RNA: Bacterial RNase P class B
Organism: Halalkalibacter oceani
RNA sequence: GCAUUCAGGUAACCGCUGCAUGCGUUAGUAUGUAGAGGAAAGUCCAUGCUCGCACGAGCUGAGAUGCUCGUAGUGUUCGUGCCUAGCCAAUUCAUAAGCUAGGGUAGUCCGGUUUCGACUGGGCUAACGGCAAGGGAAGCACCUACGUCUUCGUGAUAUGGUGUGAGCCCUUUGAAAGUGCCACAGUGACGUAGUCCGCCUGGAAACGGGUGGAGUGGAACGCGGUAAACCCCUCGAGCGAGAAACCCAAAAUAUGGUAGGGGCAUUUUCCCGGCUGGAAAUGAACAGCCUGGAAGAACAAAGAGAUUUCUUUGUAGAUAGAUGGUUACCACCGGAGUACGAGGCUCAUCACCGUUUGAAGUACAAUGGUACAGAACAUGGCUUAUCGAA
Numbered sequence: 001g002c003a004u005u006c007a008g009g010u011a012a013c014c015g016c017u018g019c020a021u022g023c024g025u026u027a028g029u030a031u032g033u034a035g036a037g038g039a040a041a042g043u044c045c046a047u048g049c050u051c052g053c054a055c056g057a058g059c060u061g062a063g064a065u066g067c068u069c070g071u072a073g074u075g076u077u078c079g080u081g082c083c084u085a086g087c088c089a090a091u092u093c094a095u096a097a098g099c100u101a102g103g104g105u106a107g108u109c110c111g112g113u114u115u116c117g118a119c120u121g122g123g124c125u126a127a128c129g130g131c132a133a134g135g136g137a138a139g140c141a142c143c144u145a146c147g148u149c150u151u152c153g154u155g156a157u158a159u160g161g162u163g164u165g166a167g168c169c170c171u172u173u174g175a176a177a178g179u180g181c182c183a184c185a186g187u188g189a190c191g192u193a194g195u196c197c198g199c200c201u202g203g204a205a206a207c208g209g210g211u212g213g214a215g216u217g218g219a220a221c222g223c224g225g226u227a228a229a230c231c232c233c234u235c236g237a238g239c240g241a242g243a244a245a246c247c248c249a250a251a252a253u254a255u256g257g258u259a260g261g262g263g264c265a266u267u268u269u270c271c272c273g274g275c276u277g278g279a280a281a282u283g284a285a286c287a288g289c290c291u292g293g294a295a296g297a298a299c300a301a302a303g304a305g306a307u308u309u310c311u312u313u314g315u316a317g318a319u320a321g322a323u324g325g326u327u328a329c330c331a332c333c334g335g336a337g338u339a340c341g342a343g344g345c346u347c348a349u350c351a352c353c354g355u356u357u358g359a360a361g362u363a364c365a366a367u368g369g370u371a372c373a374g375a376a377c378a379u380g381g382c383u384u385a386u387c388g389a390a
Stems, first nucleotide, its partner, number of pairs: 004390003007386001008330007016035006040384003044381005049242005054071006077237003081233001082103006104128001105126009129232002132172004140163004147157003178230002180226003195214008246262003266297006298315006332369003337364004